[Rfam]
RNA sequence: GUCUUGUCAAUGAUGUCUUCAAACACAAAUGUCUGAACAAAUGACUUCCUGUGAUUCAUCCUUCUGUGCUGAGACAAGAC
Numbered sequence: 001g002u003c004u005u006g007u008c009a010a011u012g013a014u015g016u017c018u019u020c021a022a023a024c025a026c027a028a029a030u031g032u033c034u035g036a037a038c039a040a041a042u043g044a045c046u047u048c049c050u051g052u053g054a055u056u057c058a059u060c061c062u063u064c065u066g067u068g069c070u071g072a073g074a075c076a077a078g079a080c
Base pairs, nucleotide, nucleotide: 002079003078004077005076006075007074008073
RNA: Small nucleolar RNA SNORD72